[Rfam]
Rfam assigns this 263-nucleotide RNA from Arenaria interpres to the family "Small Cajal body specific RNA 6".

RNA sequence: GGUCUGUGAUGAACAGUAAAAGGUCUGAUUAUCCAUAGACUGAUACUUCCAUGACCUUUUCUCCCAGCAGUUUCUCACCAGUCACAGCACAGUAAUGGUGUGACUGGCAGAGUGUGUGCUGACAACUUGGGAUGUGUUCAGUUCAUGUUAACCUGAAGCACUGGAGACAUGACUGGGAUCAGCAUCCGACAGUCUUACUUGAAGGAGUUUGGGGUCUUGGAUCGCUCUAACUGGACGUGUGAUCUGACUUUUCUGCUGAGACC
Dot-bracket structure: ((((...............................((((.(......((((.((......(((((((((........(((((((((............))))))))).........))))).......(.(((((........((((((..(..........)..))))))..........))))))................)))).......)).))))...................).)))).............))))
Numbered sequence: 001g002g003u004c005u006g007u008g009a010u011g012a013a014c015a016g017u018a019a020a021a022g023g024u025c026u027g028a029u030u031a032u033c034c035a036u037a038g039a040c041u042g043a044u045a046c047u048u049c050c051a052u053g054a055c056c057u058u059u060u061c062u063c064c065c066a067g068c069a070g071u072u073u074c075u076c077a078c079c080a081g082u083c084a085c086a087g088c089a090c091a092g093u094a095a096u097g098g099u100g101u102g103a104c105u106g107g108c109a110g111a112g113u114g115u116g117u118g119c120u121g122a123c124a125a126c127u128u129g130g131g132a133u134g135u136g137u138u139c140a141g142u143u144c145a146u147g148u149u150a151a152c153c154u155g156a157a158g159c160a161c162u163g164g165a166g167a168c169a170u171g172a173c174u175g176g177g178a179u180c181a182g183c184a185u186c187c188g189a190c191a192g193u194c195u196u197a198c199u200u201g202a203a204g205g206a207g208u209u210u211g212g213g214g215u216c217u218u219g220g221a222u223c224g225c226u227c228u229a230a231c232u233g234g235a236c237g238u239g240u241g242a243u244c245u246g247a248c249u250u251u252u253c254u255g256c257u258g259a260g261a262c263c
Stems, first nucleotide, its partner, number of pairs: 001263004036246004041241001048221004053216002061207004065121005078107009129187001131186005144171006152163001
From the family's description: U88 is small Cajal body specific RNA (scaRNA). scaRNAs are a novel class of small nuclear RNAs which localise to the Cajal bodies. U88 is found associated with both fibrillarin and Gar1p and co-localises with coilin in Cajal bodies. NCBI's taxonomy places the organism under Eukaryota, Archosauria, Neoaves, Charadriiformes, Arenaria. The family's consensus secondary structure is taken from published work.